Rfam assigns this 84-nucleotide RNA from Aquilegia coerulea to the family "Small nucleolar RNA snoR27".
RNA sequence: UUUGGAUCGAUGAUGUUGCAUAAAUUACUGCGUUAUCUUUCUGAUAAUCCUUUGAGGAAAGCUUUAAGUACGCUGAGAUCCAAA
Numbered sequence: 001u002u003u004g005g006a007u008c009g010a011u012g013a014u015g016u017u018g019c020a021u022a023a024a025u026u027a028c029u030g031c032g033u034u035a036u037c038u039u040u041c042u043g044a045u046a047a048u049c050c051u052u053u054g055a056g057g058a059a060a061g062c063u064u065u066a067a068g069u070a071c072g073c074u075g076a077g078a079u080c081c082a083a084a
Base pairs, nucleotide, nucleotide: 001084002083003082004081005080006079007078
A search with the family's covariance model found it, with a score of 64 bits.
The family's consensus secondary structure was predicted with WAR.
Gene Ontology terms of the family: RNA processing and nucleolus.
On this family, see Brown et al., RNA 2001: "Multiple snoRNA gene clusters from Arabidopsis".
Rfam classes the family as a C/D-box small nucleolar RNA.